[Rfam]
RNA sequence: CAUCUUCACCAGGGGGGUCCCGACAAGGGGCUGAGAUUCCGCUGGCCGUUCACGGCAGCGCGGUGACCCUACGAACCUGAUCCAGUUCACACUGGCGUAGGGACGGUGCGAAUGCCCGGGC
Numbered sequence: 001c002a003u004c005u006u007c008a009c010c011a012g013g014g015g016g017g018u019c020c021c022g023a024c025a026a027g028g029g030g031c032u033g034a035g036a037u038u039c040c041g042c043u044g045g046c047c048g049u050u051c052a053c054g055g056c057a058g059c060g061c062g063g064u065g066a067c068c069c070u071a072c073g074a075a076c077c078u079g080a081u082c083c084a085g086u087u088c089a090c091a092c093u094g095g096c097g098u099a100g101g102g103a104c105g106g107u108g109c110g111a112a113u114g115c116c117c118g119g120g121c
Stems, first nucleotide, its partner, number of pairs: 007108004011070004016064001017031005039063004076101004082095004
RNA: TPP riboswitch aptamer (THI element)
Organism: Lutibaculum baratangense